Rfam assigns this 65-nucleotide RNA from Polaromonas vacuolata to the family "Betaproteobacteria toxic small RNA". The match comes from Rfam's covariance-model search (63 bits). Overexpression in amino aid rich medium attenuates growth, suggesting role in repressing amino acid intake and metabolism. Taxonomically the source falls in Polaromonas (Bacteria, Pseudomonadati, Pseudomonadota, Comamonadaceae). The family's consensus secondary structure was predicted with WAR.
[Rfam]
RNA sequence: UGUCUCCUCCACCUCCUCAAAGGGUGGAUUUACAGACCCAGAUCGCAAGAUCUGGGUCUUUUUUC
Numbered sequence: 001u002g003u004c005u006c007c008u009c010c011a012c013c014u015c016c017u018c019a020a021a022g023g024g025u026g027g028a029u030u031u032a033c034a035g036a037c038c039c040a041g042a043u044c045g046c047a048a049g050a051u052c053u054g055g056g057u058c059u060u061u062u063u064u065c
Base pairs, nucleotide, nucleotide: 008028009027010026011025012024013023035058036057037056038055039054040053041052042051